[Rfam]
RNA sequence: GGUCUGUGAUGAAAAAUAGCCAAAUCUGACCACCGGGAGAUAAAACAAUCUUCUAGGUGUCAUGAUUUGCAUGCAGUUCUGAGA
Numbered sequence: 001g002g003u004c005u006g007u008g009a010u011g012a013a014a015a016a017u018a019g020c021c022a023a024a025u026c027u028g029a030c031c032a033c034c035g036g037g038a039g040a041u042a043a044a045a046c047a048a049u050c051u052u053c054u055a056g057g058u059g060u061c062a063u064g065a066u067u068u069g070c071a072u073g074c075a076g077u078u079c080u081g082a083g084a
Base pairs, nucleotide, nucleotide: 031059032058033057034056038051039050040049041048